RNA sequence: GGCGAUAAAUUGUGAUGUGUAAUAGACGCAGCGGACCCGGGGGCAGUACCCGGCGGCUCCACCACAAACUCCGCUUCGGCGGAUGUUCUGACGGGGCCGAACCAGGAUCGACGUGUGUUCAAAGACAUUAUUUUCGCCCGGGCUGAGUAACCCGUUUAAGGCUCACAACACACAAGUGCCAACGAUAACGAAGCACUCGCAAUCGCUGCGUAA
Numbered sequence: 001g002g003c004g005a006u007a008a009a010u011u012g013u014g015a016u017g018u019g020u021a022a023u024a025g026a027c028g029c030a031g032c033g034g035a036c037c038c039g040g041g042g043g044c045a046g047u048a049c050c051c052g053g054c055g056g057c058u059c060c061a062c063c064a065c066a067a068a069c070u071c072c073g074c075u076u077c078g079g080c081g082g083a084u085g086u087u088c089u090g091a092c093g094g095g096g097c098c099g100a101a102c103c104a105g106g107a108u109c110g111a112c113g114u115g116u117g118u119u120c121a122a123a124g125a126c127a128u129u130a131u132u133u134u135c136g137c138c139c140g141g142g143c144u145g146a147g148u149a150a151c152c153c154g155u156u157u158a159a160g161g162c163u164c165a166c167a168a169c170a171c172a173c174a175a176g177u178g179c180c181a182a183c184g185a186u187a188a189c190g191a192a193g194c195a196c197u198c199g200c201a202a203u204c205g206c207u208g209c210g211u212a213a
Stems, first nucleotide, its partner, number of pairs: 001138005015128004027117003031114003037053005054099007139154004
RNA: permuted transfer-messenger RNA
Organism: Altericroceibacterium indicum